[Rfam]
RNA sequence: GACAAAUGCGCAAGGUUAUUCUCGUAGUACGAGCGCCAUCGACGGAGCGGGAUUGACCCGCAGGUCCGGCGAUGGCGCACAGGCCCCCUCUGGGGCCUUUUUUAUUGCCUAGAA
Number, nucleotide and partner (000 for none) at each position: 001g000002a000003c000004a000005a000006a000007u029008g000009c027010g000011c000012a000013a000014g000015g000016u000017u000018a000019u000020u000021c000022u000023c000024g000025u000026a000027g009028u000029a007030c000031g109032a000033g000034c077035g076036c075037c074038a073039u072040c071041g070042a000043c068044g000045g000046a000047g061048c060049g059050g058051g057052a000053u000054u000055g000056a000057c051058c050059c049060g048061c047062a000063g000064g000065u000066c000067c000068g043069g000070c041071g040072a039073u038074g037075g036076c035077g034078c000079a099080c000081a098082g097083g096084c095085c094086c093087c092088c000089u000090c000091u000092g087093g086094g085095g084096c083097c082098u081099u079100u000101u000102u000103u000104a000105u000106u000107g000108c000109c031110u000111a000112g000113a000114a000
This 114-nucleotide RNA sequence from Microvirga subterranea belongs to the Rfam family "Rhizobiales sRNA Atu_C8". The match comes from Rfam's covariance-model search (50 bits). The source organism's lineage runs through Bacteria, Pseudomonadati, Pseudomonadota, Methylobacteriaceae and Microvirga. The literature on the family includes a 2012 paper in RNA Biol by Wilms et al., "Deep sequencing uncovers numerous small RNAs on all four replicons of the plant pathogen Agrobacterium tumefaciens".